[Rfam]
RNA: Plant signal recognition particle RNA
RNA sequence: GCCGAGCUCAGUAAUGUGAGUUUGUAACCCAAGUGGGGGCAAUAAUGUGAUUGGACAUUAGGUUUGCUCAAUUAGUUGGGCCAAGUUGGCUAAUUGCUGGCUUGCCCGUUCCAAGCGGGGAGUUGGGUCAUGUAGCUUAAGCGAAGGCAUGGGCUUCAUGGCCCCUAGAGUGGAGGGCACUGCAUCAGGCUGGUUUCACAGAGCAGCGAAAACCUCCCGCUCCUUGCAGUGGAAGGAUAAUGGGUCGGUGCCUUCUUAGCUCAUCAAAGCUAAAUGGGCUAGCCUUAAUUGGACAAUCACCUUU
Numbered sequence: 001g002c003c004g005a006g007c008u009c010a011g012u013a014a015u016g017u018g019a020g021u022u023u024g025u026a027a028c029c030c031a032a033g034u035g036g037g038g039g040c041a042a043u044a045a046u047g048u049g050a051u052u053g054g055a056c057a058u059u060a061g062g063u064u065u066g067c068u069c070a071a072u073u074a075g076u077u078g079g080g081c082c083a084a085g086u087u088g089g090c091u092a093a094u095u096g097c098u099g100g101c102u103u104g105c106c107c108g109u110u111c112c113a114a115g116c117g118g119g120g121a122g123u124u125g126g127g128u129c130a131u132g133u134a135g136c137u138u139a140a141g142c143g144a145a146g147g148c149a150u151g152g153g154c155u156u157c158a159u160g161g162c163c164c165c166u167a168g169a170g171u172g173g174a175g176g177g178c179a180c181u182g183c184a185u186c187a188g189g190c191u192g193g194u195u196u197c198a199c200a201g202a203g204c205a206g207c208g209a210a211a212a213c214c215u216c217c218c219g220c221u222c223c224u225u226g227c228a229g230u231g232g233a234a235g236g237a238u239a240a241u242g243g244g245u246c247g248g249u250g251c252c253u254u255c256u257u258a259g260c261u262c263a264u265c266a267a268a269g270c271u272a273a274a275u276g277g278g279c280u281a282g283c284c285u286u287a288a289u290u291g292g293a294c295a296a297u298c299a300c301c302u303u304u
Stems, first nucleotide, its partner, number of pairs: 001040003004023007028037003044303002047300007056291002058288003061284004066279001068277003072273006078262004083257003088252002091250002097248008106236002109234005115227009125164008134155006141148002165170001172217005181210001183208001185206001190201003
Dot-bracket structure: ((((((((((......)))))))....(((....))))))...((.(((((((..(((((((((.(.(((.((((((((((.(((..((.((....((((((((.((.(((((.(((((((((.((((((((.((((((.((....)).)))))).))))))))(....).(((((....(.(.(....(((......)))....).).)..))))).)))))))))..)))))))....))))))))))))..))).)))).....)))))).))).).)))).))).))..))))))).)).